[Rfam]
Nucleotides: 211
Stems, first nucleotide, its partner, number of pairs: 001133005013122004025111002029108003035051005052093007134149004
Number, partner (000 for none) and nucleotide at each position: 001133g002132g003131a004130c005129a006000u007000a008000a009000a010000c011000g012000c013122g014121c015120a016119c017000g018000u019000a020000a021000u022000a023000g024000g025111c026110g027000g028000u029108u030107c031106g032000g033000a034000c035051c036050c037049g038048g039047g040000g041000g042000c043000g044000g045000u046000a047039c048038c049037c050036g051035g052093c053092g054091a055090c056089u057088c058087c059000a060000c061000c062000a063000a064000a065000a066000u067000c068000a069000c070000c071000c072000g073000c074000a075000u076000u077000g078000g079000g080000g081000g082000u083000g084000c085000a086000u087058g088057g089056g090055g091054u092053c093052g094000a095000a096000a097000u098000a099000g100000g101000a102000u103000c104000g105000a106031c107030g108029g109000a110026c111025g112000u113000u114000c115000a116000a117000a118000g119016g120015u121014g122013u123000u124000u125000g126000c127000u128000u129005u130004g131003u132002c133001c134149c135148g136147g137146u138000g139000a140000g141000g142000u143000a144000c145000c146137a147136c148135c149134g150000u151000u152000a153000u154000c155000g156000g157000u158000c159000c160000g161000a162000a163000a164000a165000g166000u167000a168000c169000a170000g171000u172000u173000g174000c175000c176000a177000a178000u179000g180000a181000c182000a183000a184000c185000c186000g187000u188000g189000c190000u191000c192000c193000g194000g195000u196000c197000g198000c199000c200000c201000u202000u203000g204000c205000u206000g207000c208000g209000u210000a211000a
This 211-nucleotide RNA sequence from Paracoccus suum belongs to the Rfam family "permuted transfer-messenger RNA". A search with the family's covariance model found it, with a score of 149 bits. The family's consensus secondary structure is taken from published work. Rfam classes the family as a non-coding RNA gene. Bacterial tmRNA, also known as 10Sa RNA or SsrA, is named for its dual tRNA and mRNA-like properties.